[Rfam]
This 120-nucleotide RNA sequence from Xanthomonas oryzae belongs to the Rfam family "SAM riboswitch aptamer (S box leader)". NCBI's taxonomy places the organism under Bacteria, Pseudomonadati, Gammaproteobacteria, Lysobacteraceae, Xanthomonas oryzae pv. oryzae. It scores 69 bits against the family's covariance model. The family has 457 seed sequences and 9,625 matches in Rfam 15.1. Pairs were carried over by alignment from the consensus structure, which is taken from published work.
RNA sequence: UCACCAUCGAGACCGGCGGAGGGACAGGCCCUUUGAUGCCGGGGCAGCCAGCGGAGCGCGCAAGCGUCCGCGUUUGGUGCCAAAUCCUGCGGGGACCCCGCGUCCGCCGAAAGAUGGUUC
Numbered sequence: 001u002c003a004c005c006a007u008c009g010a011g012a013c014c015g016g017c018g019g020a021g022g023g024a025c026a027g028g029c030c031c032u033u034u035g036a037u038g039c040c041g042g043g044g045c046a047g048c049c050a051g052c053g054g055a056g057c058g059c060g061c062a063a064g065c066g067u068c069c070g071c072g073u074u075u076g077g078u079g080c081c082a083a084a085u086c087c088u089g090c091g092g093g094g095a096c097c098c099c100g101c102g103u104c105c106g107c108c109g110a111a112a113g114a115u116g117g118u119u120c
Base pairs, nucleotide, nucleotide: 003118004117005116006115007114008113013042014041015040016039017038021031022030023029025089026088027087028086043081044080045079046078048077049076050074051073052072053071085112090109091108092107094105